[Rfam]
RNA sequence: GCCCAGAUGAACGUCGGUGAUCCGGUGUGCGGGCUACAAGCCCGUAGCUGAUAAGAGUCACAGUGGUUCGAUUCCACCUUCUGGGG
Numbered sequence: 001g002c003c004c005a006g007a008u009g010a011a012c013g014u015c016g017g018u019g020a021u022c023c024g025g026u027g028u029g030c031g032g033g034c035u036a037c038a039a040g041c042c043c044g045u046a047g048c049u050g051a052u053a054a055g056a057g058u059c060a061c062a063g064u065g066g067u068u069c070g071a072u073u074c075c076a077c078c079u080u081c082u083g084g085g086g
Base pairs, nucleotide, nucleotide: 002085003084004083005082006081007080009078012027013026014025015024016023017022028046029045030044031043032042033041049060050059051058052057063077064076065075066074
Selenocysteine transfer RNA: an 86-nucleotide RNA from Trichonephila inaurata.
On this family, see Mizutani and Goto, FEBS Lett 2000: "Eukaryotic selenocysteine tRNA has the 9/4 secondary structure".
Rfam 15.1 lists 4,211 matches to the family in 3,344 species.
The source organism's lineage runs through Eukaryota, Ecdysozoa, Entelegynae, Orbiculariae and Trichonephila inaurata.